[Rfam]
RNA sequence: GGGCCUUCGCGCAACUGGCGAUCAAGGCUGCGGACGGCAUCAACCGGCCGACGGCCCGAGGUGGUGGACCACCGGGGAGCGCGAACGGUUCAGGGCCCGGGCCCGGCCGACAUCAGCCGUUCGCCUGGGCAGCCCAG
Numbered sequence: 001g002g003g004c005c006u007u008c009g010c011g012c013a014a015c016u017g018g019c020g021a022u023c024a025a026g027g028c029u030g031c032g033g034a035c036g037g038c039a040u041c042a043a044c045c046g047g048c049c050g051a052c053g054g055c056c057c058g059a060g061g062u063g064g065u066g067g068a069c070c071a072c073c074g075g076g077g078a079g080c081g082c083g084a085a086c087g088g089u090u091c092a093g094g095g096c097c098c099g100g101g102c103c104c105g106g107c108c109g110a111c112a113u114c115a116g117c118c119g120u121u122c123g124c125c126u127g128g129g130c131a132g133c134c135c136a137g
Stems, first nucleotide, its partner, number of pairs: 004087001006085007015076002017125005061072004114132001116130003
RNA: ZMP/ZTP riboswitch aptamer (pfl RNA motif)
Organism: Roseateles sp. DAIF2